RNA: U12 minor spliceosomal RNA
RNA sequence: UUGCCUUAAACUAGUAAGGAAAACAAAGCGGACGGUGAGAGCCGGCCGCAGCGCUUAUGAUGUUUAGUGUGGCGGAAGAAUUUAUGGAGGGGUUAUAGGCUGGCCAAGUGUUGAUGCUGCCUACUUUGCAGAAACUCGCUUGUGCGGGCCUCCC
Numbered sequence: 001u002u003g004c005c006u007u008a009a010a011c012u013a014g015u016a017a018g019g020a021a022a023a024c025a026a027a028g029c030g031g032a033c034g035g036u037g038a039g040a041g042c043c044g045g046c047c048g049c050a051g052c053g054c055u056u057a058u059g060a061u062g063u064u065u066a067g068u069g070u071g072g073c074g075g076a077a078g079a080a081u082u083u084a085u086g087g088a089g090g091g092g093u094u095a096u097a098g099g100c101u102g103g104c105c106a107a108g109u110g111u112u113g114a115u116g117c118u119g120c121c122u123a124c125u126u127u128g129c130a131g132a133a134a135c136u137c138g139c140u141u142g143u144g145c146g147g148g149c150c151u152c153c154c
Stems, first nucleotide, its partner, number of pairs: 004019005028049004033044003052074004091154002097151005103145001105142002108139003117131004